Description
Pyrobaculum asRNA3: a 57-nucleotide RNA from Pyrobaculum aerophilum. The base pairs follow the family's consensus structure. By type it is an antisense RNA. The literature on the family includes a 2012 paper in Front Microbiol by Bernick et al., "Diversity of Antisense and Other Non-Coding RNAs in Archaea Revealed by Comparative Small RNA Sequencing in Four Pyrobaculum Species". Rfam's curators write: Binds to the 3'-end of the tpi gene (triose-phosphate-isomerse). The tpi mRNA has a conserved structural element located close to the stop codon.
[Rfam]
RNA sequence: CGCUCGCGGCGGGGCCGCCUUAAGUGUCCGCCGCUCAUUUGCCCCCAAUUCGGGGGU
Numbered sequence: 001c002g003c004u005c006g007c008g009g010c011g012g013g014g015c016c017g018c019c020u021u022a023a024g025u026g027u028c029c030g031c032c033g034c035u036c037a038u039u040u041g042c043c044c045c046c047a048a049u050u051c052g053g054g055g056g057u
Stems, first nucleotide, its partner, number of pairs: 006034007014027002017025002041057006